[Rfam]
RNA sequence: AGACCGUUUCUGAAACCAGUAGUGAAGUAUGUUAUUUAAUUCGUUGGUUCGCGAAAAACCUUACCACAACUUGAAUAUUAUUUUUUUUAUACCUAAAGAAGAUAUUACAAGCGUUGCACGGCUGUCUUCAGUUAAUGUCGUGAGAUAUUGGUUAAUUCCAUUAAAUUAACGGAAACCCUUGCUUUAUUUGCAAUAUAUUGAAAUAAAGCUGCACACCAGCAUAACGGAUAUGUUAAUAGGGAUCAAGACAAGUCAUCAUGGCCUGAAUGUUGUGGGCGAUAGACGUGCCACAUAUUCCUAUACAAAAUGAAGCGAAAAUGUGAAUUUUAGCUAAUCUAAUAAAGUAGGAUAUAAUAAGGAUUGUAGUCUGAAAUUCGACUGCAUGAAUAAGGAAUUACUAGUAAUCGUGAAUCACCACGUCACGGUGAAUCUAAUCUCAGAUAGGUACUAACAACUCGUCAGGCACCGAAAGAAGUGUGUGCAAUAAGUUUGGUCUAUGUUUUAUUUGUUCUAGAUAAUUAGUUCUAGUUAUAUUAUGGUAGAUUUUCGUAUGCGUGACUUUGAUUGGUGUUAAGUCGAAAUACGG
Dot-bracket structure: (((((.(.(((((.....((((((..(((((((((....((((........))))........(((((((.....((.((..(((((((....)))))))..)).))..((.((((...((((((((...(((((((((....)))..(((......)))....)))))).....((((.(((((((...((......))..)))))))..((.(.(.(.....).).).)).....))))....)))).)))...).))))))....)))))))...)).)))))))..)....((((((.......(..((...(((....)))...))....).......)))))).......(....(((((((........)))))))....).....))))).....(((((((.........)))))))..........))))).)))).))..(.(..((...((((((((..(((((.((((((....(...........................................................)...)))))))))))..))))))))....))...)..).
Numbered sequence: 001a002g003a004c005c006g007u008u009u010c011u012g013a014a015a016c017c018a019g020u021a022g023u024g025a026a027g028u029a030u031g032u033u034a035u036u037u038a039a040u041u042c043g044u045u046g047g048u049u050c051g052c053g054a055a056a057a058a059c060c061u062u063a064c065c066a067c068a069a070c071u072u073g074a075a076u077a078u079u080a081u082u083u084u085u086u087u088u089a090u091a092c093c094u095a096a097a098g099a100a101g102a103u104a105u106u107a108c109a110a111g112c113g114u115u116g117c118a119c120g121g122c123u124g125u126c127u128u129c130a131g132u133u134a135a136u137g138u139c140g141u142g143a144g145a146u147a148u149u150g151g152u153u154a155a156u157u158c159c160a161u162u163a164a165a166u167u168a169a170c171g172g173a174a175a176c177c178c179u180u181g182c183u184u185u186a187u188u189u190g191c192a193a194u195a196u197a198u199u200g201a202a203a204u205a206a207a208g209c210u211g212c213a214c215a216c217c218a219g220c221a222u223a224a225c226g227g228a229u230a231u232g233u234u235a236a237u238a239g240g241g242a243u244c245a246a247g248a249c250a251a252g253u254c255a256u257c258a259u260g261g262c263c264u265g266a267a268u269g270u271u272g273u274g275g276g277c278g279a280u281a282g283a284c285g286u287g288c289c290a291c292a293u294a295u296u297c298c299u300a301u302a303c304a305a306a307a308u309g310a311a312g313c314g315a316a317a318a319u320g321u322g323a324a325u326u327u328u329a330g331c332u333a334a335u336c337u338a339a340u341a342a343a344g345u346a347g348g349a350u351a352u353a354a355u356a357a358g359g360a361u362u363g364u365a366g367u368c369u370g371a372a373a374u375u376c377g378a379c380u381g382c383a384u385g386a387a388u389a390a391g392g393a394a395u396u397a398c399u400a401g402u403a404a405u406c407g408u409g410a411a412u413c414a415c416c417a418c419g420u421c422a423c424g425g426u427g428a429a430u431c432u433a434a435u436c437u438c439a440g441a442u443a444g445g446u447a448c449u450a451a452c453a454a455c456u457c458g459u460c461a462g463g464c465a466c467c468g469a470a471a472g473a474a475g476u477g478u479g480u481g482c483a484a485u486a487a488g489u490u491u492g493g494u495c496u497a498u499g500u501u502u503u504a505u506u507u508g509u510u511c512u513a514g515a516u517a518a519u520u521a522g523u524u525c526u527a528g529u530u531a532u533a534u535u536a537u538g539g540u541a542g543a544u545u546u547u548c549g550u551a552u553g554c555g556u557g558a559c560u561u562u563g564a565u566u567g568g569u570g571u572u573a574a575g576u577c578g579a580a581a582u583a584c585g586g
Stems, first nucleotide, its partner, number of pairs: 001449002003446003007443001009441005019398005024291001027288007034280002040055004064275007076107002079104002083100007110264002113262004120257001121253003124249004131170006137146003149160003176241004181209007191200002212232002215229001217227001219225001296349006309336001312331002317326003357388001362383007404426007452585001454582001457578002462572008472562005478557006488548001